[Rfam]
RNA sequence: AAAACCAUAUUGCUCCGAGCUUGGUGCCCUAAAGGAUACAUCCCAAGGUCACCGGCCGGCAGGUUCACCUGGAAACGGGCGAGCCUCCCGUUGUGGAAAGGAGCCACAUUUGAACACCAA
Numbered sequence: 001a002a003a004a005c006c007a008u009a010u011u012g013c014u015c016c017g018a019g020c021u022u023g024g025u026g027c028c029c030u031a032a033a034g035g036a037u038a039c040a041u042c043c044c045a046a047g048g049u050c051a052c053c054g055g056c057c058g059g060c061a062g063g064u065u066c067a068c069c070u071g072g073a074a075a076c077g078g079g080c081g082a083g084c085c086u087c088c089c090g091u092u093g094u095g096g097a098a099a100g101g102a103g104c105c106a107c108a109u110u111u112g113a114a115c116a117c118c119a120a
Stems, first nucleotide, its partner, number of pairs: 011106002013103004019056003023053004028048002034043003061086006068079004087096002
Shown here is a 120-nucleotide sequence from Sporotomaculum syntrophicum, a member of the family "Molybdenum/Tungsten riboswitch aptamer (Moco RNA motif)". Lineage of the source: Bacteria > Bacillati > Eubacteriales > Desulfallaceae > Sporotomaculum. The family's consensus secondary structure is taken from published work.